[Rfam]
RNA sequence: GAAGCGUGAACCCGGCACCGCCACCGCGGGUAAGACCGGGACCGUCUCACCGCAAGGCGAGACUACC
Numbered sequence: 001g002a003a004g005c006g007u008g009a010a011c012c013c014g015g016c017a018c019c020g021c022c023a024c025c026g027c028g029g030g031u032a033a034g035a036c037c038g039g040g041a042c043c044g045u046c047u048c049a050c051c052g053c054a055a056g057g058c059g060a061g062a063c064u065a066c067c
Stems, first nucleotide, its partner, number of pairs: 011040005018029004044063005050057002
Dot-bracket structure: ..........(((((..((((....))))......)))))...(((((.((....)).)))))....
Transposase-2 RNA: a 67-nucleotide sequence from Micromonospora sp. MH33. Rfam classes the family as a small RNA. The source organism's lineage runs through Bacteria, Bacillati, Actinomycetota, Micromonosporaceae and Micromonospora.